[Rfam]
RNA sequence: UCCGUCAAGCAGGCAAAUGCGAGGCAAGCUUGCUUGCGGGUAUUUGACGGGACAACAGGUAUGAGCAUGAAGCGCUGCUGCUUUUUGCAGCGUGAAAUGCGAAUACCUGUCAGCGUCACGGGAGCUGCGGAGGCAGCGAAGUGACGCUGAGACGGA
Numbered sequence: 001u002c003c004g005u006c007a008a009g010c011a012g013g014c015a016a017a018u019g020c021g022a023g024g025c026a027a028g029c030u031u032g033c034u035u036g037c038g039g040g041u042a043u044u045u046g047a048c049g050g051g052a053c054a055a056c057a058g059g060u061a062u063g064a065g066c067a068u069g070a071a072g073c074g075c076u077g078c079u080g081c082u083u084u085u086u087g088c089a090g091c092g093u094g095a096a097a098u099g100c101g102a103a104u105a106c107c108u109g110u111c112a113g114c115g116u117c118a119c120g121g122g123a124g125c126u127g128c129g130g131a132g133g134c135a136g137c138g139a140a141g142u143g144a145c146g147c148u149g150a151g152a153c154g155g156a
Stems, first nucleotide, its partner, number of pairs: 001156006010051001013048001016044005024037005055110008065100004072093007113147007124137004
The family of this 156-nucleotide RNA sequence from Oribacterium sp. oral taxon 078 is "Clostridiales-1 RNA". Rfam 15.1 lists 1,172 matches to the family in 137 species. NCBI's taxonomy places the organism under Bacteria, Bacillati, Lachnospirales, Lachnospiraceae, Oribacterium sp. oral taxon 078.